This 115-nucleotide sequence from Treponema phagedenis belongs to the Rfam family "TD-2 RNA". It is annotated as a small RNA. The match comes from Rfam's covariance-model search (52 bits).

RNA sequence: UUUUCCACGGAUGGCGGUGGUUCCAAACAGAAGCGACGUUUUAAAGCAAAGUAGUUUGCAAAGCUUUAAAACUCGCAGGUUUGGUUUUGACAUGGACGUCAAAACCAAACCGUAG
Numbered sequence: 001u002u003u004u005c006c007a008c009g010g011a012u013g014g015c016g017g018u019g020g021u022u023c024c025a026a027a028c029a030g031a032a033g034c035g036a037c038g039u040u041u042u043a044a045a046g047c048a049a050a051g052u053a054g055u056u057u058g059c060a061a062a063g064c065u066u067u068a069a070a071a072c073u074c075g076c077a078g079g080u081u082u083g084g085u086u087u088u089g090a091c092a093u094g095g096a097c098g099u100c101a102a103a104a105c106c107a108a109a110c111c112g113u114a115g
Stems, first nucleotide, its partner, number of pairs: 002017002005014002034075003038072010078111014
For this family Rfam cites "Identification of 22 candidate structured RNAs in bacteria using the CMfinder comparative genomics pipeline" (Weinberg et al., Nucleic Acids Res, 2007).